[Rfam]
RNA sequence: AUGCCUCUGGAAAGCGGCGACGACCGCAGCGACCGUCGCCCGCCGAUGGGGAAAGGCGCCAAGUAGCGGCGCCGAAUCUCUCAGGCGCCUGGUGCACGGGUGAAGACAGAGGGAGAGGG
Numbered sequence: 001a002u003g004c005c006u007c008u009g010g011a012a013a014g015c016g017g018c019g020a021c022g023a024c025c026g027c028a029g030c031g032a033c034c035g036u037c038g039c040c041c042g043c044c045g046a047u048g049g050g051g052a053a054a055g056g057c058g059c060c061a062a063g064u065a066g067c068g069g070c071g072c073c074g075a076a077u078c079u080c081u082c083a084g085g086c087g088c089c090u091g092g093u094g095c096a097c098g099g100g101u102g103a104a105g106a107c108a109g110a111g112g113g114a115g116a117g118g119g
Base pairs, nucleotide, nucleotide: 002114004112005111006110007109008108009107016040017039018038019037020036021035022034042086043085044084045082046081049080050079051078055073056072057071058070059069060068
Shown here is a 119-nucleotide RNA, a member of the family "Glycine riboswitch aptamer". Rfam 15.1 lists 9,425 matches to the family in 5,228 species. About the family: This family represents the bacterial glycine riboswitch. Glycine riboswitches usually consist of two metabolite-binding aptamers domains with similar structures in tandem. The aptamers cooperatively bind glycine to regulate the expression of downstream genes.